Rfam assigns this 364-nucleotide part of an RNA to the family "Archaeal large subunit ribosomal RNA". It scores 2437 bits against the family's covariance model. Pairs were carried over by alignment from the consensus structure, which is taken from published work.

RNA sequence: GGUAGUACCAACGUCAUUGGAAGUGAGAAUCUUCCUCGCCGAAAGGGGAAGGGUUCCUCGGCAACGAUCGUCGACCGAGGGUUAGCCGGACCUAAUCCAGCUCCUAAUUGGACGCUGGAGAACAGGGAAGCAGGUUAAUAUUCCUGCGCCAACUCACAGCACAUACACUUUGGGACAACGGUUGCUGCGUCUUCGCGCAGUCCAAGCGGUUGAUACGUGGCGAGCAUAAUGCUUCGACCCCGUGAAUCCGUUAUGGGUCUGGGAGUUAUCCCGGAUUUCCGUGCGUCCUGGAGGCUUUGAAAGGCUGUGAGAGACCGUACCGAGAACCAGCACAGGUCCCCAGGCUGAGAAGGCCAAGGCGUAU
Numbered sequence: 001g002g003u004a005g006u007a008c009c010a011a012c013g014u015c016a017u018u019g020g021a022a023g024u025g026a027g028a029a030u031c032u033u034c035c036u037c038g039c040c041g042a043a044a045g046g047g048g049a050a051g052g053g054u055u056c057c058u059c060g061g062c063a064a065c066g067a068u069c070g071u072c073g074a075c076c077g078a079g080g081g082u083u084a085g086c087c088g089g090a091c092c093u094a095a096u097c098c099a100g101c102u103c104c105u106a107a108u109u110g111g112a113c114g115c116u117g118g119a120g121a122a123c124a125g126g127g128a129a130g131c132a133g134g135u136u137a138a139u140a141u142u143c144c145u146g147c148g149c150c151a152a153c154u155c156a157c158a159g160c161a162c163a164u165a166c167a168c169u170u171u172g173g174g175a176c177a178a179c180g181g182u183u184g185c186u187g188c189g190u191c192u193u194c195g196c197g198c199a200g201u202c203c204a205a206g207c208g209g210u211u212g213a214u215a216c217g218u219g220g221c222g223a224g225c226a227u228a229a230u231g232c233u234u235c236g237a238c239c240c241c242g243u244g245a246a247u248c249c250g251u252u253a254u255g256g257g258u259c260u261g262g263g264a265g266u267u268a269u270c271c272c273g274g275a276u277u278u279c280c281g282u283g284c285g286u287c288c289u290g291g292a293g294g295c296u297u298u299g300a301a302a303g304g305c306u307g308u309g310a311g312a313g314a315c316c317g318u319a320c321c322g323a324g325a326a327c328c329a330g331c332a333c334a335g336g337u338c339c340c341c342a343g344g345c346u347g348a349g350a351a352g353g354c355c356a357a358g359g360c361g362u363a364u
Stems, first nucleotide, its partner, number of pairs: 019035005037361004045341004051321002056080006065073002087317003091126002096119006102112003130147005150313001153311005161306001168293008178282004184201005206251004217241001219238001221236002223233003263270001327336002343355003